This 85-nucleotide sequence from Ogataea parapolymorpha belongs to the Rfam family "Small nucleolar RNA R38". It scores 54 bits against the family's covariance model. It is annotated as a C/D-box small nucleolar RNA. The family's consensus secondary structure was predicted with PFOLD. The organism belongs to Ogataea parapolymorpha, within Eukaryota. snoR38 is a C/D box small nucleolar RNA conserved across yeast, human, Arabidopsis and rice.
RNA sequence: GUGCUUUUAUGAUGAAAUAUUUCCAUCAAUUAUACAGUUAUCCCUGUCUUAAAUACCAUGUCGAGAUUGCGAAUCUGAAAUGCAU
Number, nucleotide and partner (000 for none) at each position: 001g085002u084003g083004c082005u000006u080007u079008u000009a000010u000011g000012a000013u000014g000015a000016a000017a000018u000019a000020u000021u000022u000023c000024c000025a000026u000027c000028a000029a000030u000031u000032a000033u000034a000035c000036a000037g000038u000039u000040a000041u000042c000043c000044c000045u000046g000047u000048c000049u000050u000051a000052a000053a000054u000055a000056c000057c000058a000059u000060g000061u000062c000063g000064a000065g000066a000067u000068u000069g000070c000071g000072a000073a000074u000075c000076u000077g000078a000079a007080a006081u000082g004083c003084a002085u001